[Rfam]
RNA sequence: UGUGAGCGUCGUGACUGGCGUACAGAUGGUUCACCAUCGGGGAACGACAACUCUUCAUGGAUGGCCGCUCGCCUGGGUCGAUAUC
Number, nucleotide and partner (000 for none) at each position: 001u000002g000003u000004g053005a052006g051007c000008g048009u047010c046011g045012u044013g000014a000015c041016u040017g073018g072019c071020g070021u000022a000023c000024a000025g000026a037027u036028g035029g034030u000031u000032c000033a000034c029035c028036a027037u026038c000039g000040g016041g015042g000043a000044a012045c011046g010047a009048c008049a000050a000051c006052u005053c004054u000055u000056c000057a000058u000059g000060g000061a000062u080063g079064g078065c077066c076067g000068c000069u000070c020071g019072c018073c017074u000075g000076g066077g065078u064079c063080g062081a000082u000083a000084u000085c000

The family of this 85-nucleotide sequence from Leucobacter sp. 7(1) is "ZMP/ZTP riboswitch aptamer (pfl RNA motif)".
A search with the family's covariance model found it, with a score of 54 bits.
Pairs were carried over by alignment from the consensus structure, which is taken from published work.